Overview
The family of this 125-nucleotide sequence from Streptomyces collinus is "Streptomyces RNA 3920". The organism belongs to Streptomyces collinus, within Bacteria. The sequence is in the family's curated seed alignment. From the family's description: Identified by deep sequencing of transcriptome at the end of exponential growth phase. Sequencing size consistent with northern blot size. Streptomyces specific.

RNA sequence: GAUAGGUCUCUGUCGCUAGCGUGAUUGGACACUGACAGACAGUCAACUAGCCUUGUUCGCGCGGUUCUUCGCGCGCGGAACCGGGGCGGUCCGAGCCACGAGGGGGGAGGUUCGGACCGCCCGCA
Numbered sequence: 001g002a003u004a005g006g007u008c009u010c011u012g013u014c015g016c017u018a019g020c021g022u023g024a025u026u027g028g029a030c031a032c033u034g035a036c037a038g039a040c041a042g043u044c045a046a047c048u049a050g051c052c053u054u055g056u057u058c059g060c061g062c063g064g065u066u067c068u069u070c071g072c073g074c075g076c077g078g079a080a081c082c083g084g085g086g087c088g089g090u091c092c093g094a095g096c097c098a099c100g101a102g103g104g105g106g107g108a109g110g111u112u113c114g115g116a117c118c119g120c121c122c123g124c125a
Stems, first nucleotide, its partner, number of pairs: 001014005015051004021032003033045004058075007076083002085121013099106001